[Rfam]
RNA: Ribosomal protein L19 leader
Organism: Bacillus benzoevorans
RNA sequence: ACGAUGUUCCGCUGCAUUUAUAUUAUGAUUGUGCAAGAGCAUCCG
Numbered sequence: 001a002c003g004a005u006g007u008u009c010c011g012c013u014g015c016a017u018u019u020a021u022a023u024u025a026u027g028a029u030u031g032u033g034c035a036a037g038a039g040c041a042u043c044c045g
Stems, first nucleotide, its partner, number of pairs: 003043007013035005